[Rfam]
Rfam assigns this 83-nucleotide sequence from Medicago truncatula to the family "MIR2617 microRNA precursor family". Taxonomically the source falls in Medicago (Eukaryota, Viridiplantae, Embryophyta, Hologalegina). Pairs were carried over by alignment from the consensus structure, which was predicted with RNAalifold.
RNA sequence: UGAUGGUGUAGCAUGCCCGUUGUGGAAAUACUCUGAUGAAUAUUCGUUAUUUAAUUGUUUUGGGUAAUGAGGUGUUACAAAUC
Numbered sequence: 001u002g003a004u005g006g007u008g009u010a011g012c013a014u015g016c017c018c019g020u021u022g023u024g025g026a027a028a029u030a031c032u033c034u035g036a037u038g039a040a041u042a043u044u045c046g047u048u049a050u051u052u053a054a055u056u057g058u059u060u061u062g063g064g065u066a067a068u069g070a071g072g073u074g075u076u077a078c079a080a081a082u083c
Stems, first nucleotide, its partner, number of pairs: 002083003007079008016071001018069004